[Rfam]
RNA sequence: UCGGAGACUGAGAAAACAGAGUCCUUGAAGUCAAGCUGACUCUGCAUUUAGCCUCCUAAAUGAAAAGGUAGAUAGAACAGGUCUUGUUUGCAAAAGAAACCCAAGACCUACUUAUCUACCAACAGCA
Numbered sequence: 001u002c003g004g005a006g007a008c009u010g011a012g013a014a015a016a017c018a019g020a021g022u023c024c025u026u027g028a029a030g031u032c033a034a035g036c037u038g039a040c041u042c043u044g045c046a047u048u049u050a051g052c053c054u055c056c057u058a059a060a061u062g063a064a065a066a067g068g069u070a071g072a073u074a075g076a077a078c079a080g081g082u083c084u085u086g087u088u089u090g091c092a093a094a095a096g097a098a099a100c101c102c103a104a105g106a107c108c109u110a111c112u113u114a115u116c117u118a119c120c121a122a123c124a125g126c127a
Base pairs, nucleotide, nucleotide: 003056004055005054006053008051009050010049011048017044018043019042020041021040022039023038024035025034026033027032067120068119069118070117071116072115073114074113079109080108081107082106083105084104085103086102
Dot-bracket structure: ..((((.((((.....(((((((((((....))))..)))))))...)))).))))..........((((((((....((((((((...............))))))))...)))))))).......

Small Cajal body specific RNA 15: a 127-nucleotide RNA sequence from Cavia porcellus. The family is grouped with related families in Rfam's "SCARNA4 clan". The family's consensus secondary structure was predicted with RNAfold. By type it is a small Cajal body RNA. The literature on the family includes a 2002 paper in EMBO J by Darzacq et al., "Cajal body-specific small nuclear RNAs: a novel class of 2'-O-methylation and pseudouridylation guide RNAs". From the family's description: scaRNAs are a specific class of small nuclear RNAs which localise to the Cajal bodies and guide the modification of RNA polymerase II transcribed spliceosomal RNAs U1, U2, U4, U5 and U12. ACA45 belongs to the H/ACA box class of guide RNAs as it has the predicted hairpin-hinge-hairpin-tail structure, the conserved H/ACA-box motifs and is found associated with GAR1. ACA45 is predicted to guide the pseudouridylation of residue U37 of the U2 spliceosomal snRNA.